Shown here is a 92-nucleotide RNA sequence from Anisodus acutangulus, a member of the family "mir-393 microRNA precursor family". The literature on the family includes a 2012 paper in J Plant Physiol by Kruszka et al., "Role of microRNAs and other sRNAs of plants in their changing environments".
RNA sequence: GGUGGAUUAUUCCAAAGGGAUCGCAUUGAUCCUGUGUCCCAAAUUAACCAGCUGGUCUAAUGGGAUCAUGCGAUCUCUUCGGAAUUCUCCAU
Numbered sequence: 001g002g003u004g005g006a007u008u009a010u011u012c013c014a015a016a017g018g019g020a021u022c023g024c025a026u027u028g029a030u031c032c033u034g035u036g037u038c039c040c041a042a043a044u045u046a047a048c049c050a051g052c053u054g055g056u057c058u059a060a061u062g063g064g065a066u067c068a069u070g071c072g073a074u075c076u077c078u079u080c081g082g083a084a085u086u087c088u089c090c091a092u
Stems, first nucleotide, its partner, number of pairs: 002092005009085005015079007023071004028067008